The family of this 70-nucleotide sequence from Musa balbisiana is "Plastid-clpP 5UTR RNA". Rfam classes the family as a cis-regulatory element. The literature on the family includes a 2023 paper in Plant Commun by Richter et al., "Retrograde signaling in plants: A critical review focusing on the GUN pathway and beyond". Rfam's curators write: Plastid clpP is a non-coding RNA (ncRNA) recognised in plastids. It was found in the prime untranslated region (5UTR) of a protease complex subunit (clpP) in plastids, suggesting a posible cis-regulatory function. Taxonomically the source falls in Musa (Eukaryota, Liliopsida, Petrosaviidae, Zingiberales).
[Rfam]
RNA sequence: CAUUCUGUUCGUACGAAAAAGGAGAAAGCAGAUCUAUCUAUAACCCGAUAAGUACCAAUACGCCAUGGGA
Numbered sequence: 001c002a003u004u005c006u007g008u009u010c011g012u013a014c015g016a017a018a019a020a021g022g023a024g025a026a027a028g029c030a031g032a033u034c035u036a037u038c039u040a041u042a043a044c045c046c047g048a049u050a051a052g053u054a055c056c057a058a059u060a061c062g063c064c065a066u067g068g069g070a
Base pairs, nucleotide, nucleotide: 003022004021006019008017009016010015044069045068046067052061053060054059